[Rfam]
Notes: This 204-nucleotide RNA sequence from Pontibacter ummariensis belongs to the Rfam family "Group II catalytic intron D1-D4-3". The base pairs follow the family's consensus structure.
RNA sequence: UUACCUGUGAGGGUUGGUCUGAAGGAAGCGGGACUGCAAACACCUGAACUGACGAAUACUCUUGAGCACGGGAGUGCGAAGAGAGUAUUCGUAGUGCUGCAUAAGAGGCAUGGUAGCGCGGGUAAGCAAGCACAUCUUUGCGAUGCCCCUGGCCAACAAACGGCUCUUUAUAGAAGCAGCAGGGUUAGGUGGAAGGAUAAGUGU
Numbered sequence: 001u002u003a004c005c006u007g008u009g010a011g012g013g014u015u016g017g018u019c020u021g022a023a024g025g026a027a028g029c030g031g032g033a034c035u036g037c038a039a040a041c042a043c044c045u046g047a048a049c050u051g052a053c054g055a056a057u058a059c060u061c062u063u064g065a066g067c068a069c070g071g072g073a074g075u076g077c078g079a080a081g082a083g084a085g086u087a088u089u090c091g092u093a094g095u096g097c098u099g100c101a102u103a104a105g106a107g108g109c110a111u112g113g114u115a116g117c118g119c120g121g122g123u124a125a126g127c128a129a130g131c132a133c134a135u136c137u138u139u140g141c142g143a144u145g146c147c148c149c150u151g152g153c154c155a156a157c158a159a160a161c162g163g164c165u166c167u168u169u170a171u172a173g174a175a176g177c178a179g180c181a182g183g184g185u186u187a188g189g190u191g192g193a194a195g196g197a198u199a200a201g202u203g204u
Stems, first nucleotide, its partner, number of pairs: 001016001003014004028204003037196001041191006049182003097179004102174001108171001110169001112167002117162002120148004126141004
Rfam describes the family as follows. Group II introns are found in rRNA, tRNA and mRNA of organelles in fungi, plants and protists, and also in mRNA in bacteria.